[Rfam]
Nucleotides: 075
Base pairs, nucleotide, nucleotide: 001074002073003072004071005070006069007068008067009066011064012063013062014061015060016059017058019056020055021054022053023052025050028047029046030045032043035040
Number, partner (000 for none) and nucleotide at each position: 001074g002073g003072c004071g005070c006069a007068a008067g009066c010000u011064u012063g013062a014061a015060g016059u017058a018000a019056a020055g021054u022053a023052g024000a025050u026000u027000a028047g029046u030045a031000c032043g033000a034000g035040c036000a037000g038000c039000u040035g041000a042000c043032c044000a045030u046029a047028c048000c049000c050025a051000a052023c053022u054021a055020u056019u057000c058017u059016a060015c061014u062013u063012c064011g065000a066009g067008u068007u069006u070005g071004u072003g073002u074001c075000c

Shown here is a 75-nucleotide sequence from Haemonchus placei, a member of the family "mir-5928 microRNA precursor family".
The family has 5 seed sequences and 1,672 matches in Rfam 15.1.